[Rfam]
Rfam assigns this 97-nucleotide RNA from Lentibacillus sp. CBA3610 to the family "Glycine riboswitch aptamer".
The match comes from Rfam's covariance-model search (68 bits).
RNA sequence: AUGAUUACAAGGGGAGAGCUUACUGCAAGCGUGCGCAGUAACGCCGAAGGAGCAAGCAAUUUGUGAAUCUCUCAGGCAAAAAGACUCUUGUAGGACG
Numbered sequence: 001a002u003g004a005u006u007a008c009a010a011g012g013g014g015a016g017a018g019c020u021u022a023c024u025g026c027a028a029g030c031g032u033g034c035g036c037a038g039u040a041a042c043g044c045c046g047a048a049g050g051a052g053c054a055a056g057c058a059a060u061u062u063g064u065g066a067a068u069c070u071c072u073c074a075g076g077c078a079a080a081a082a083g084a085c086u087c088u089u090g091u092a093g094g095a096c097g
Stems, first nucleotide, its partner, number of pairs: 006092008020041006043077003046073002050071003056064002